[Rfam]
RNA sequence: CUUGAGGGAGCCCAGCCACAACGGCCGGUCGGGGGCGCGCUCUUGGCCGUACGUGGCGAGCAGCGCCUGUGCCUC
Numbered sequence: 001c002u003u004g005a006g007g008g009a010g011c012c013c014a015g016c017c018a019c020a021a022c023g024g025c026c027g028g029u030c031g032g033g034g035g036c037g038c039g040c041u042c043u044u045g046g047c048c049g050u051a052c053g054u055g056g057c058g059a060g061c062a063g064c065g066c067c068u069g070u071g072c073c074u075c
Stems, first nucleotide, its partner, number of pairs: 015025003032070001038065002043060002047056003
Shown here is a 75-nucleotide RNA from Streptomyces alboflavus, a member of the family "ASpks TB sRNA". Taxonomically the source falls in Streptomyces (Bacteria, Actinomycetota, Kitasatosporales, Streptomycetaceae).